A member of the RNA family "RNA of unknown function 20" from Saccharomyces cerevisiae, 444 nucleotides long. The source organism's lineage runs through Eukaryota, Dikarya, Ascomycota, Saccharomyces and Saccharomyces cerevisiae.
RNA sequence: ACGUGGGUUUUUUUUUCGAAUUGAGUGAUUAUGCAACCAUACAGGAACCUUACAUAAGCGCAAGUAGUUGAAUAGUGGAUUCAAGAAGCAAAACUUUACUACCGGUAAAAACAUUAGAACGAAAUAAAAGUGCUGAAUCUUAAAAGUAAAAUAUAUACUUGGAUAAGAAUUCCCAGGGAAACUGGGAACCUCGUUUUCCUGUUGCACUAUUUUUUUAGAUUCUUUCUUGAUUUUUUACCAAUCGCCUGAUGAAAAUACCUUCCAGAGCAGAGAACAACAGUAGAAGUAUGCUGAAAAAGUUAGUAUGAGAAGUUUGAAUUGUUUAGAUAAUAUAAAAGUGACAUCUAAUAUGACUAAUAUAAAAAUAGUAAGUAUGGUAAUCAAAAAAAGAUACAAACAAUGUAUAUAUAUAAAGGAAAAAUAACCUGCGAAUAUUGAGAAAAA
Numbered sequence: 001a002c003g004u005g006g007g008u009u010u011u012u013u014u015u016u017c018g019a020a021u022u023g024a025g026u027g028a029u030u031a032u033g034c035a036a037c038c039a040u041a042c043a044g045g046a047a048c049c050u051u052a053c054a055u056a057a058g059c060g061c062a063a064g065u066a067g068u069u070g071a072a073u074a075g076u077g078g079a080u081u082c083a084a085g086a087a088g089c090a091a092a093a094c095u096u097u098a099c100u101a102c103c104g105g106u107a108a109a110a111a112c113a114u115u116a117g118a119a120c121g122a123a124a125u126a127a128a129a130g131u132g133c134u135g136a137a138u139c140u141u142a143a144a145a146g147u148a149a150a151a152u153a154u155a156u157a158c159u160u161g162g163a164u165a166a167g168a169a170u171u172c173c174c175a176g177g178g179a180a181a182c183u184g185g186g187a188a189c190c191u192c193g194u195u196u197u198c199c200u201g202u203u204g205c206a207c208u209a210u211u212u213u214u215u216u217a218g219a220u221u222c223u224u225u226c227u228u229g230a231u232u233u234u235u236u237a238c239c240a241a242u243c244g245c246c247u248g249a250u251g252a253a254a255a256u257a258c259c260u261u262c263c264a265g266a267g268c269a270g271a272g273a274a275c276a277a278c279a280g281u282a283g284a285a286g287u288a289u290g291c292u293g294a295a296a297a298a299g300u301u302a303g304u305a306u307g308a309g310a311a312g313u314u315u316g317a318a319u320u321g322u323u324u325a326g327a328u329a330a331u332a333u334a335a336a337a338g339u340g341a342c343a344u345c346u347a348a349u350a351u352g353a354c355u356a357a358u359a360u361a362a363a364a365a366u367a368g369u370a371a372g373u374a375u376g377g378u379a380a381u382c383a384a385a386a387a388a389a390g391a392u393a394c395a396a397a398c399a400a401u402g403u404a405u406a407u408a409u410a411u412a413a414a415g416g417a418a419a420a421a422u423a424a425c426c427u428g429c430g431a432a433u434a435u436u437g438a439g440a441a442a443a444a
Stems, first nucleotide, its partner, number of pairs: 002430008011421004036378006058065002072080002087097002104239002107236003113231001115229001116227002119224001121222003133204001136171001138168005145159003174201007184191002247264001251262002288306007324347005391405005